[Rfam]
This 73-nucleotide sequence from Microlunatus parietis belongs to the Rfam family "Actino-pnp RNA". The family's RNA type in Rfam is cis-regulatory element. The organism belongs to Microlunatus, within Bacteria.

RNA sequence: CUCGGUCCUCGGUAGUGAUCCUCGGAGUCCCCUCGAUCGAGGGGACGGCCGCGGAUCUCGAUCGAAGACCGGG
Numbered sequence: 001c002u003c004g005g006u007c008c009u010c011g012g013u014a015g016u017g018a019u020c021c022u023c024g025g026a027g028u029c030c031c032c033u034c035g036a037u038c039g040a041g042g043g044g045a046c047g048g049c050c051g052c053g054g055a056u057c058u059c060g061a062u063c064g065a066a067g068a069c070c071g072g073g
Stems, first nucleotide, its partner, number of pairs: 001073007009065005017057005023051003027046008